Record summary:
Shown here is a 66-nucleotide RNA sequence from Ureibacillus endophyticus, a member of the family "Bacillaceae-1 RNA". Lineage of the source: Bacteria > Bacillota > Caryophanales > Caryophanaceae > Ureibacillus.
[Rfam]
RNA sequence: UUACACGAGCAGGUGACAAAAACGCCACAUCGUGUGGCAUUGUCACCAUGACCAACAUCGUGUUGG
Numbered sequence: 001u002u003a004c005a006c007g008a009g010c011a012g013g014u015g016a017c018a019a020a021a022a023c024g025c026c027a028c029a030u031c032g033u034g035u036g037g038c039a040u041u042g043u044c045a046c047c048a049u050g051a052c053c054a055a056c057a058u059c060g061u062g063u064u065g066g
Stems, first nucleotide, its partner, number of pairs: 012047006024038005052066005
By type it is a small RNA.